This 86-nucleotide RNA sequence from Butyrivibrio sp. M55 belongs to the Rfam family "ZMP/ZTP riboswitch aptamer (pfl RNA motif)". Pairs were carried over by alignment from the consensus structure, which is taken from published work. It scores 60 bits against the family's covariance model. NCBI's taxonomy places the organism under Bacteria, Bacillati, Bacillota, Clostridia, Butyrivibrio.
RNA sequence: AUGUGUUCAUACAACUGGCGGAUAAGUGGGUAACCACAUGGGAGUAUGGAAAUAUAUUAUGAAUGUCGACCGCCUGGGCAACCGCU
Number, nucleotide and partner (000 for none) at each position: 001a000002u000003g053004u052005g000006u050007u049008c048009a047010u046011a045012c044013a000014a000015c041016u040017g074018g073019c072020g071021g070022a000023u000024a000025a000026g037027u036028g035029g034030g000031u000032a000033a000034c029035c028036a027037c026038a000039u000040g016041g015042g000043a000044g012045u011046a010047u009048g008049g007050a006051a000052a004053u003054a000055u000056a000057u000058u000059a000060u000061g000062a000063a000064u080065g079066u078067c077068g000069a000070c021071c020072g019073c018074c017075u000076g000077g067078g066079c065080a064081a000082c000083c000084g000085c000086u000